[Rfam]
RNA sequence: UUAAAUGAUAGAGGCGCGGUAUUUAUCAGUACAUAAUAACUUAAGCAGGGCAGCUGUUAUUAUUGAAAGGAAAUAUCGCCGAAGUUCAGGCUUUGCACCAGGGUCUGUUCUGGGGUAUCGUAGAAUAUGCGAUACACUGUCACAUCGAGUGGAGCGCUAUCUUGGUU
Numbered sequence: 001u002u003a004a005a006u007g008a009u010a011g012a013g014g015c016g017c018g019g020u021a022u023u024u025a026u027c028a029g030u031a032c033a034u035a036a037u038a039a040c041u042u043a044a045g046c047a048g049g050g051c052a053g054c055u056g057u058u059a060u061u062a063u064u065g066a067a068a069g070g071a072a073a074u075a076u077c078g079c080c081g082a083a084g085u086u087c088a089g090g091c092u093u094u095g096c097a098c099c100a101g102g103g104u105c106u107g108u109u110c111u112g113g114g115g116u117a118u119c120g121u122a123g124a125a126u127a128u129g130c131g132a133u134a135c136a137c138u139g140u141c142a143c144a145u146c147g148a149g150u151g152g153a154g155c156g157c158u159a160u161c162u163u164g165g166u167u
Stems, first nucleotide, its partner, number of pairs: 007161005016079009033063007083111002087107008112138002115135008140152004

Rfam assigns this 167-nucleotide RNA sequence from Peptacetobacter hiranonis to the family "Lysine riboswitch aptamer". The match comes from Rfam's covariance-model search (100 bits). The organism belongs to Peptacetobacter hiranonis, within Bacteria. The base pairs follow the family's consensus structure, which is taken from published work.